[Rfam]
RNA sequence: GAGAAAAAGAAAGCGCCAGAACCAACGGUGAAGUUCGAGAUCCGAAGUGCGAAGUUCGGGGACGGAAGUUUAGAGGAUAGAAAUCCGAGGAUGGAAGCUCGAUGAGAGAAGUCCGGGGAUGGAAGUCCUGGGAUGGGAACCCAAGGGCGGAAGCUCAGGGUUCGAAGCCCGGGUUCAGAAAUCGGGGGCAGCGGAUCGCGGUGUCGGGGUCUCGGGGUCUCGGGGUCGGAGAUCGAAGACUGAGUUGGUUGACGAGGAAGAGGGUUAUCGAAGGUUUCGGCGGAUCCCUCUCGGUGGCUUGCCAUCGUUAAGUUUGCCACAAAACCGGGGAGCAAUUCCCGUGACAAAAAGCAAACCCGCAAGACAA
Numbered sequence: 001g002a003g004a005a006a007a008a009g010a011a012a013g014c015g016c017c018a019g020a021a022c023c024a025a026c027g028g029u030g031a032a033g034u035u036c037g038a039g040a041u042c043c044g045a046a047g048u049g050c051g052a053a054g055u056u057c058g059g060g061g062a063c064g065g066a067a068g069u070u071u072a073g074a075g076g077a078u079a080g081a082a083a084u085c086c087g088a089g090g091a092u093g094g095a096a097g098c099u100c101g102a103u104g105a106g107a108g109a110a111g112u113c114c115g116g117g118g119a120u121g122g123a124a125g126u127c128c129u130g131g132g133a134u135g136g137g138a139a140c141c142c143a144a145g146g147g148c149g150g151a152a153g154c155u156c157a158g159g160g161u162u163c164g165a166a167g168c169c170c171g172g173g174u175u176c177a178g179a180a181a182u183c184g185g186g187g188g189c190a191g192c193g194g195a196u197c198g199c200g201g202u203g204u205c206g207g208g209g210u211c212u213c214g215g216g217g218u219c220u221c222g223g224g225g226u227c228g229g230a231g232a233u234c235g236a237a238g239a240c241u242g243a244g245u246u247g248g249u250u251g252a253c254g255a256g257g258a259a260g261a262g263g264g265u266u267a268u269c270g271a272a273g274g275u276u277u278c279g280g281c282g283g284a285u286c287c288c289u290c291u292c293g294g295u296g297g298c299u300u301g302c303c304a305u306c307g308u309u310a311a312g313u314u315u316g317c318c319a320c321a322a323a324a325c326c327g328g329g330g331a332g333c334a335a336u337u338c339c340c341g342u343g344a345c346a347a348a349a350a351g352c353a354a355a356c357c358c359g360c361a362a363g364a365c366a367a
Stems, first nucleotide, its partner, number of pairs: 020250007259291005268280004292307006312356006326341006